[Rfam]
RNA sequence: UUUCGAUAAGGGCAAAGCAAGCGAAAGCUUGUGGCGCAAAGCUAUAGGGACUUUAACAUGUCAGCCAGUUGCAGUU
Numbered sequence: 001u002u003u004c005g006a007u008a009a010g011g012g013c014a015a016a017g018c019a020a021g022c023g024a025a026a027g028c029u030u031g032u033g034g035c036g037c038a039a040a041g042c043u044a045u046a047g048g049g050a051c052u053u054u055a056a057c058a059u060g061u062c063a064g065c066c067a068g069u070u071g072c073a074g075u076u
Stems, first nucleotide, its partner, number of pairs: 012037002017032006040070004047066002049062003
A member of the RNA family "c-di-GMP-I riboswitch aptamer" from Butyrivibrio sp. CB08, 76 nucleotides long. About the family: GEMM was predicted in a large-scale screen for bacterial structured RNA regulatory elements. NCBI's taxonomy places the organism under Bacteria, Bacillati, Bacillota, Lachnospiraceae, Butyrivibrio.